[Rfam]
RNA sequence: ACGAGACCGACACCGAGAACAGAUUUCUAGGAGCGAGGACGGGGGACCCACCCUCAUCCCCUGAGACCGGGCAUCACACCGAUGUCCUUGGGGUUAAGUCCCAGGGCUCACAAGGCCCCGGGACCGAGCAACCUCUCGCUCGAACCCGACAGCUGACUUCGUAGGCGCGUGGAGAGAGGAAUU
Number, nucleotide and partner (000 for none) at each position: 001a000002c000003g000004a000005g000006a000007c000008c000009g000010a000011c000012a000013c000014c000015g000016a000017g000018a000019a000020c000021a000022g000023a000024u000025u000026u000027c000028u000029a000030g000031g000032a000033g000034c000035g000036a000037g000038g000039a162040c161041g160042g159043g158044g157045g000046a000047c000048c000049c090050a089051c000052c000053c000054u000055c000056a000057u000058c000059c000060c000061c000062u000063g000064a000065g000066a000067c000068c000069g000070g000071g000072c000073a000074u000075c000076a000077c000078a000079c000080c000081g000082a000083u000084g000085u000086c000087c000088u000089u050090g049091g147092g146093g145094u000095u000096a000097a000098g000099u123100c122101c121102c120103a000104g000105g000106g000107c000108u000109c000110a000111c000112a000113a000114g000115g000116c000117c000118c000119c000120g102121g101122g100123a099124c000125c000126g141127a140128g139129c138130a000131a000132c000133c000134u000135c000136u000137c000138g129139c128140u127141c126142g000143a000144a000145c093146c092147c091148g000149a000150c000151a000152g000153c000154u000155g000156a000157c044158u043159u042160c041161g040162u039163a000164g000165g000166c000167g000168c000169g000170u000171g000172g000173a000174g000175a000176g000177a000178g000179g000180a000181a000182u000183u000

Notes
The family of this 183-nucleotide RNA sequence from Gordonia bronchialis is "c-di-AMP riboswitch aptamer (ydaO/yuaA leader)".